Shown here is an 87-nucleotide RNA sequence from Planctomycetes bacterium MalM25, a member of the family "c-di-GMP-I-GGC riboswitch aptamer". Its family is annotated with cyclic-di-GMP binding in the Gene Ontology.

RNA sequence: CCCGAAAAAGGCAAACCCGUCGCGAGACGGGGACGCAAAGCCAUGGGUCUCGGGCCAGAUCGGCUCCAGAUCGCCAGGCCGCCGGCA
Numbered sequence: 001c002c003c004g005a006a007a008a009a010g011g012c013a014a015a016c017c018c019g020u021c022g023c024g025a026g027a028c029g030g031g032g033a034c035g036c037a038a039a040g041c042c043a044u045g046g047g048u049c050u051c052g053g054g055c056c057a058g059a060u061c062g063g064c065u066c067c068a069g070a071u072c073g074c075c076a077g078g079c080c081g082c083c084g085g086c087a
Stems, first nucleotide, its partner, number of pairs: 003084002011036002016031006034073001040079003044076003047071003